[Rfam]
RNA: glmS glucosamine-6-phosphate activated ribozyme aptamer
Organism: Melghirimyces thermohalophilus
RNA sequence: ACUUGUUGUAAAGCGCCAGGACUGCAGCGGGAUCAAGCUGCAGUUGACGAGGUGGAGGGGAAUCGACGGAUCGGCGGAUACCUCCCGGCUCGGCACCGGAGCCGUGGGACCGGAACACAAAAGAACGGGGUGACCCGUUUGACAAAGGUUUCGGUACGGUGCACC
Numbered sequence: 001a002c003u004u005g006u007u008g009u010a011a012a013g014c015g016c017c018a019g020g021a022c023u024g025c026a027g028c029g030g031g032a033u034c035a036a037g038c039u040g041c042a043g044u045u046g047a048c049g050a051g052g053u054g055g056a057g058g059g060g061a062a063u064c065g066a067c068g069g070a071u072c073g074g075c076g077g078a079u080a081c082c083u084c085c086c087g088g089c090u091c092g093g094c095a096c097c098g099g100a101g102c103c104g105u106g107g108g109a110c111c112g113g114a115a116c117a118c119a120a121a122a123g124a125a126c127g128g129g130g131u132g133a134c135c136c137g138u139u140u141g142a143c144a145a146a147g148g149u150u151u152c153g154g155u156a157c158g159g160u161g162c163a164c165c
Base pairs, nucleotide, nucleotide: 020045021044022043023042024041025040026039027038028037054085055084056083057082058081063074064073065072066071086104087103088102089101090100091099109155110154111153112152113151114150115149123140124139125138126137127136128135129134